[Rfam]
RNA: mir-2767 microRNA precursor family
RNA sequence: UUUAUUGUCGUUCAAAGUAAAUCUCGUGCGGCUUGUUUUUAUUCCAAGCUGUAAGAGAUUCACUUAGAUUGAUGAUAGA
Numbered sequence: 001u002u003u004a005u006u007g008u009c010g011u012u013c014a015a016a017g018u019a020a021a022u023c024u025c026g027u028g029c030g031g032c033u034u035g036u037u038u039u040u041a042u043u044c045c046a047a048g049c050u051g052u053a054a055g056a057g058a059u060u061c062a063c064u065u066a067g068a069u070u071g072a073u074g075a076u077a078g079a
Stems, first nucleotide, its partner, number of pairs: 006075001007073004012068002015065004020060006027053009